[Rfam]
This 134-nucleotide sequence from Crocodylus porosus belongs to the Rfam family "Small nucleolar RNA SNORA58". The family is grouped with related families in Rfam's "SNORA44 clan". A reference for the family is Huttenhofer et al. (2001), "RNomics: an experimental approach that identifies 201 candidates for novel, small, non-messenger RNAs in mouse", EMBO J. Its family is annotated with nucleolus and RNA processing in the Gene Ontology. Rfam 15.1 lists 471 matches to the family in 320 species. The base pairs follow the family's consensus structure, which was predicted with PFOLD. By type it is an H/ACA-box small nucleolar RNA. ACA52 is a member of the H/ACA class of snoRNA that guide the sites of modification of uridines to pseudouridines.
RNA sequence: GUGCAUGGCAGUAGACCCUCUCUAGCUUUUCUCGUGGCUAGACAGGGGGGAUGGUCAUGCAACAAAAACUCGGAGUCUCUAUCAGAUUAAAUCAGCCUGCCUCUGGCUGAUUGAACUGCAUUGCUCCAACAUGC
Numbered sequence: 001g002u003g004c005a006u007g008g009c010a011g012u013a014g015a016c017c018c019u020c021u022c023u024a025g026c027u028u029u030u031c032u033c034g035u036g037g038c039u040a041g042a043c044a045g046g047g048g049g050g051a052u053g054g055u056c057a058u059g060c061a062a063c064a065a066a067a068a069c070u071c072g073g074a075g076u077c078u079c080u081a082u083c084a085g086a087u088u089a090a091a092u093c094a095g096c097c098u099g100c101c102u103c104u105g106g107c108u109g110a111u112u113g114a115a116c117u118g119c120a121u122u123g124c125u126c127c128a129a130c131a132u133g134c
Stems, first nucleotide, its partner, number of pairs: 003060005016047004021042004072127004077123001080120001082118001092110005
Notes
The source organism's lineage runs through Eukaryota, Opisthokonta, Craniata, Amniota and Crocodylus.